Notes:
Small nucleolar RNA SNORD63: a 63-nucleotide RNA sequence from Peromyscus maniculatus. The family has 23 seed sequences and 795 matches in Rfam 15.1. Rfam links the family to the GO terms RNA processing and nucleolus. It is annotated as a C/D-box small nucleolar RNA. From the family's description: snoRNA U63 is found in both humans and mice. Lineage of the source: Eukaryota > Mammalia > Rodentia > Myomorpha > Peromyscus maniculatus. A reference for the family is Galardi et al. (2002), "Purified box C/D snoRNPs are able to reproduce site-specific 2'-O-methylation of target RNA in vitro", Mol Cell Biol. The match comes from Rfam's covariance-model search (65 bits).

[Rfam]
RNA sequence: GUGCGAUGAUGCAUUAUGAACACAUCAUUCUGAAAACGUGUAGAGAAGUAGUGACUGAGCACA
Numbered sequence: 001g002u003g004c005g006a007u008g009a010u011g012c013a014u015u016a017u018g019a020a021c022a023c024a025u026c027a028u029u030c031u032g033a034a035a036a037c038g039u040g041u042a043g044a045g046a047a048g049u050a051g052u053g054a055c056u057g058a059g060c061a062c063a
Base pairs, nucleotide, nucleotide: 001062002061003060004059